[Rfam]
RNA sequence: CGAUCGUCGUCGCUGGGGAGCGUCGCGGCGGUCGUGGGAACGAGGGAGCGGAGGGCCGGGAAGCCCGCCGCGAACGGGAGAUCAACCGGUGGAGAACGCGCUUCUCGUCGGCCUGUCGCGCCAGGUGGCGCUUC
Numbered sequence: 001c002g003a004u005c006g007u008c009g010u011c012g013c014u015g016g017g018g019a020g021c022g023u024c025g026c027g028g029c030g031g032u033c034g035u036g037g038g039a040a041c042g043a044g045g046g047a048g049c050g051g052a053g054g055g056c057c058g059g060g061a062a063g064c065c066c067g068c069c070g071c072g073a074a075c076g077g078g079a080g081a082u083c084a085a086c087c088g089g090u091g092g093a094g095a096a097c098g099c100g101c102u103u104c105u106c107g108u109c110g111g112c113c114u115g116u117c118g119c120g121c122c123a124g125g126u127g128g129c130g131c132u133u134c
Stems, first nucleotide, its partner, number of pairs: 001034008009024001011022004041072002044069001053066004086111005092106005
Rfam assigns this 134-nucleotide sequence from Alsobacter soli to the family "flg-Rhizobiales RNA". Rfam classes the family as a cis-regulatory element.